[Rfam]
RNA: Small nucleolar RNA SNORA77
Organism: Octodon degus
RNA sequence: GCAGACUCACUCUGCGAUUGGCUGCAGGCUCCAGGAGGUGCUUUCCUGUCAGCCAGAGAAUAUCCCAGGGAGCUGUGGGAGUCUCCACCUCUAAAGAGAGUGUUGCAACUUACUGAGGAUGAAGGA
Numbered sequence: 001g002c003a004g005a006c007u008c009a010c011u012c013u014g015c016g017a018u019u020g021g022c023u024g025c026a027g028g029c030u031c032c033a034g035g036a037g038g039u040g041c042u043u044u045c046c047u048g049u050c051a052g053c054c055a056g057a058g059a060a061u062a063u064c065c066c067a068g069g070g071a072g073c074u075g076u077g078g079g080a081g082u083c084u085c086c087a088c089c090u091c092u093a094a095a096g097a098g099a100g101u102g103u104u105g106c107a108a109c110u111u112a113c114u115g116a117g118g119a120u121g122a123a124g125g126a
Stems, first nucleotide, its partner, number of pairs: 001053002004050003014041003018037002022034003064117001066115003070111001072109001074107004081101002084098001